[Rfam]
RNA sequence: AUAAAUCUUCGGGGCAGGGUGAAAUUCCCGACCGACGGUAAGUUACGCGCGUUGUAACAAGUCCGUGACCCACUUUAUAUUUAAUAAGUGGUUGAUCCGGUGUGAUUCCGGAACCGACAGUAUAGUCUGGAUGGGAGAAGAUUGCA
Numbered sequence: 001a002u003a004a005a006u007c008u009u010c011g012g013g014g015c016a017g018g019g020u021g022a023a024a025u026u027c028c029c030g031a032c033c034g035a036c037g038g039u040a041a042g043u044u045a046c047g048c049g050c051g052u053u054g055u056a057a058c059a060a061g062u063c064c065g066u067g068a069c070c071c072a073c074u075u076u077a078u079a080u081u082u083a084a085u086a087a088g089u090g091g092u093u094g095a096u097c098c099g100g101u102g103u104g105a106u107u108c109c110g111g112a113a114c115c116g117a118c119a120g121u122a123u124a125g126u127c128u129g130g131a132u133g134g135g136a137g138a139a140g141a142u143u144g145c146a
Base pairs, nucleotide, nucleotide: 004143005142006141007140008139009138010137017029018028019027031126032125033116034115035066036065037064038063061114062113070091071090096112097111098110099109100108118129119128120127

The record is a 146-nucleotide sequence from Geomicrobium sp. JCM 19039, which matches "FMN riboswitch aptamer (RFN element)" in Rfam. Taxonomically the source falls in Geomicrobium (Bacteria, Bacillati, Bacilli, Caryophanales). The family's consensus secondary structure is taken from published work.